[Rfam]
RNA sequence: GUCAACUACCCACCGCCUAUAGAGGCGGGGGCUUCACAAGGCCUUAGUUGACUAGCCUCAGCCGGGGCUGAAACGCCAUCGGGCUACGUUAGACGGGUUAUGACACCCCGGGGUGAUGCCCAAGCUCCGGGCACUGUCGUGCAUAACCUAAACAGUCCUGACGGGUAGGGGCAGUGGUAUGCGCGCGUAAGCCUGUCUAACAUUGGCGAUGGGCAAAUAAC
Numbered sequence: 001g002u003c004a005a006c007u008a009c010c011c012a013c014c015g016c017c018u019a020u021a022g023a024g025g026c027g028g029g030g031g032c033u034u035c036a037c038a039a040g041g042c043c044u045u046a047g048u049u050g051a052c053u054a055g056c057c058u059c060a061g062c063c064g065g066g067g068c069u070g071a072a073a074c075g076c077c078a079u080c081g082g083g084c085u086a087c088g089u090u091a092g093a094c095g096g097g098u099u100a101u102g103a104c105a106c107c108c109c110g111g112g113g114u115g116a117u118g119c120c121c122a123a124g125c126u127c128c129g130g131g132c133a134c135u136g137u138c139g140u141g142c143a144u145a146a147c148c149u150a151a152a153c154a155g156u157c158c159u160g161a162c163g164g165g166u167a168g169g170g171g172c173a174g175u176g177g178u179a180u181g182c183g184c185g186c187g188u189a190a191g192c193c194u195g196u197c198u199a200a201c202a203u204u205g206g207c208g209a210u211g212g213g214c215a216a217a218u219a220a221c
Base pairs, nucleotide, nucleotide: 001052002051003050004049005048006047007046008045010031011030013028014027016024032041033040034039055207056206057205060085061084062083063082088201089200090199091198092197093196094195095194096193097192098191103137104136107131108130109129110128111127112126113125114124117215118214119213120212121211122210139184140183141182142181143180144179146178147177148176152175153174155172156171157170158169159168161166
RNA: HNH endonuclease-associated RNA and ORF (HEARO) RNA
Organism: Koleobacter methoxysyntrophicus